This 134-nucleotide sequence from Galemys pyrenaicus belongs to the Rfam family "Small nucleolar RNA SNORA46". The base pairs follow the family's consensus structure, which was predicted with RNAfold. Rfam links the family to the GO terms nucleolus and RNA processing. It is annotated as an H/ACA-box small nucleolar RNA. Taxonomically the source falls in Galemys (Eukaryota, Metazoa, Eumetazoa, Bilateria).
RNA sequence: AGCACUAUAUUUAAACUGUGGAUGGGAAUCUCCCCCAUUCUUGGUUACGCUGUAGUGCAAAAGAAUUCCUGGCUCUUCUUUGCACAGCUGACUUUCUGCCAAUCAGCUGUUGCUAUAUAGAGUAAGGAACAUCA
Numbered sequence: 001a002g003c004a005c006u007a008u009a010u011u012u013a014a015a016c017u018g019u020g021g022a023u024g025g026g027a028a029u030c031u032c033c034c035c036c037a038u039u040c041u042u043g044g045u046u047a048c049g050c051u052g053u054a055g056u057g058c059a060a061a062a063g064a065a066u067u068c069c070u071g072g073c074u075c076u077u078c079u080u081u082g083c084a085c086a087g088c089u090g091a092c093u094u095u096c097u098g099c100c101a102a103u104c105a106g107c108u109g110u111u112g113c114u115a116u117a118u119a120g121a122g123u124a125a126g127g128a129a130c131a132u133c134a
Stems, first nucleotide, its partner, number of pairs: 002058008014046004020040007066129005072123005082113003085109004090104002